[Rfam]
RNA sequence: GCAUGGACGAAUUCUGCACUAGCUUUCCUCAGUAGCUAAUGCAGUCAGACACUAUGCCAGAAUAAAUUCCUUUUUCACACUCAGAUUGGUAUGCUUUUUAGCUGAGAAUGGGCAUGCCCUUGGAAGUGGGAUACAGAA
Numbered sequence: 001g002c003a004u005g006g007a008c009g010a011a012u013u014c015u016g017c018a019c020u021a022g023c024u025u026u027c028c029u030c031a032g033u034a035g036c037u038a039a040u041g042c043a044g045u046c047a048g049a050c051a052c053u054a055u056g057c058c059a060g061a062a063u064a065a066a067u068u069c070c071u072u073u074u075u076c077a078c079a080c081u082c083a084g085a086u087u088g089g090u091a092u093g094c095u096u097u098u099u100a101g102c103u104g105a106g107a108a109u110g111g112g113c114a115u116g117c118c119c120u121u122g123g124a125a126g127u128g129g130g131a132u133a134c135a136g137a138a
Stems, first nucleotide, its partner, number of pairs: 001057006014044005068131003072126006088118009
RNA: Small nucleolar RNA SNORA15
Organism: Nyctiprogne leucopyga